This 150-nucleotide RNA from Olea europaea belongs to the Rfam family "small nucleolar RNA snoR134".
A search with the family's covariance model found it, with a score of 106 bits.
Gene Ontology terms of the family: nucleolus and RNA processing.
The organism belongs to Olea europaea, within Eukaryota.
The family has 5 seed sequences and 792 matches in Rfam 15.1.
RNA sequence: UUGCACGUAGCCUCCCGGGCUCUUCUGACAUUUUACAAGUGAGGUCGAAGCCCCAAAGCUCGUGCUAGAAUUAUGCCGUUUAGUGUUGCAGAUUUGUCUCUUUGUACAUCUUUUCCACGGCUAAUCUGUGUCAAAUCGAUGGCUACAUAU
Numbered sequence: 001u002u003g004c005a006c007g008u009a010g011c012c013u014c015c016c017g018g019g020c021u022c023u024u025c026u027g028a029c030a031u032u033u034u035a036c037a038a039g040u041g042a043g044g045u046c047g048a049a050g051c052c053c054c055a056a057a058g059c060u061c062g063u064g065c066u067a068g069a070a071u072u073a074u075g076c077c078g079u080u081u082a083g084u085g086u087u088g089c090a091g092a093u094u095u096g097u098c099u100c101u102u103u104g105u106a107c108a109u110c111u112u113u114u115c116c117a118c119g120g121c122u123a124a125u126c127u128g129u130g131u132c133a134a135a136u137c138g139a140u141g142g143c144u145a146c147a148u149a150u
Stems, first nucleotide, its partner, number of pairs: 003065005010059002017053005022047001025044002075143006084133002087130006096121003